[Rfam]
RNA sequence: UCGCCCACAAUGCCCUCAACGGUUUCAACACGGAUGUGGCUGUGUGCGUGGUGUGAGCGGAUACAAUGCACUUGCCGGUCGGCGCUUGCCGAAGCCCUGUGAAGGGGCAUCCCUGCUGGGGCCGUAAUCGACGCAGGGUCGUCGGCGUAACCGUCCCAUCAUUGGUCUCCUCGCGCUAACCCCGUAGCGUGUGGUUUUUAGCGGGCUCCAGGCCCGCUUUUUUU
Numbered sequence: 001u002c003g004c005c006c007a008c009a010a011u012g013c014c015c016u017c018a019a020c021g022g023u024u025u026c027a028a029c030a031c032g033g034a035u036g037u038g039g040c041u042g043u044g045u046g047c048g049u050g051g052u053g054u055g056a057g058c059g060g061a062u063a064c065a066a067u068g069c070a071c072u073u074g075c076c077g078g079u080c081g082g083c084g085c086u087u088g089c090c091g092a093a094g095c096c097c098u099g100u101g102a103a104g105g106g107g108c109a110u111c112c113c114u115g116c117u118g119g120g121g122c123c124g125u126a127a128u129c130g131a132c133g134c135a136g137g138g139u140c141g142u143c144g145g146c147g148u149a150a151c152c153g154u155c156c157c158a159u160c161a162u163u164g165g166u167c168u169c170c171u172c173g174c175g176c177u178a179a180c181c182c183c184g185u186a187g188c189g190u191g192u193g194g195u196u197u198u199u200a201g202c203g204g205g206c207u208c209c210a211g212g213c214c215c216g217c218u219u220u221u222u223u224u
Stems, first nucleotide, its partner, number of pairs: 005165003019125009029115002032112006038076003044071006051064004079092005095106004128149001132145001169194002172191007200218008
Annotation: The record is a 224-nucleotide RNA sequence from Paraburkholderia atlantica, which matches "Burkholderia sRNA Bp1_Cand871_SIPHT" in Rfam. The literature on the family includes a 2012 paper in BMC Genomics by Khoo et al., "Computational discovery and RT-PCR validation of novel Burkholderia conserved and Burkholderia pseudomallei unique sRNAs". Taxonomically the source falls in Paraburkholderia (Bacteria, Pseudomonadota, Burkholderiales, Burkholderiaceae). It is annotated as a small RNA.